[Rfam]
RNA sequence: GUGACAGAAGAGAGUGAGCACACAUGGUAUUUUCUUAUUAUGAUAUUUCAUAUUUGAAGCUAUGCGUGCUCACUUUCUAUCUGUCAC
Numbered sequence: 001g002u003g004a005c006a007g008a009a010g011a012g013a014g015u016g017a018g019c020a021c022a023c024a025u026g027g028u029a030u031u032u033u034c035u036u037a038u039u040a041u042g043a044u045a046u047u048u049c050a051u052a053u054u055u056g057a058a059g060c061u062a063u064g065c066g067u068g069c070u071c072a073c074u075u076u077c078u079a080u081c082u083g084u085c086a087c
Stems, first nucleotide, its partner, number of pairs: 001087008010077012023064003

The family of this 87-nucleotide sequence from Lathyrus oleraceus is "mir-156 microRNA precursor family".
Pairs were carried over by alignment from the consensus structure, which was predicted with PFOLD.
The family has 10 seed sequences and 1,401 matches in Rfam 15.1.
A search with the family's covariance model found it, with a score of 80 bits.
From the family's description: This family represents the plant microRNA (miRNA) precursor mir-156.
Lineage of the source: Eukaryota > Viridiplantae > Fabales > Fabeae > Lathyrus.